[Rfam]
RNA sequence: AGGCGGGGGGGGUGAUGAUUCAAUUAGAUGUACGACACCCUUGCUUCGGCAAGGCUCGUGAGUUUAACCCUUUGAGGCAAAAUCCAUUCUCGUCUGACUCCCCGGCU
Numbered sequence: 001a002g003g004c005g006g007g008g009g010g011g012g013u014g015a016u017g018a019u020u021c022a023a024u025u026a027g028a029u030g031u032a033c034g035a036c037a038c039c040c041u042u043g044c045u046u047c048g049g050c051a052a053g054g055c056u057c058g059u060g061a062g063u064u065u066a067a068c069c070c071u072u073u074g075a076g077g078c079a080a081a082a083u084c085c086a087u088u089c090u091c092g093u094c095u096g097a098c099u100c101c102c103c104g105g106c107u
Stems, first nucleotide, its partner, number of pairs: 001107002004104007

Rfam assigns this 107-nucleotide sequence from Closterium sp. NIES-68 to the family "Small nucleolar RNA Z266". The family's consensus secondary structure was predicted with PFOLD. Lineage of the source: Eukaryota > Streptophytina > Zygnematophycidae > Closteriaceae > Closterium peracerosum-strigosum-littorale complex. The match comes from Rfam's covariance-model search (53 bits). Rfam 15.1 lists 719 matches to the family in 213 species.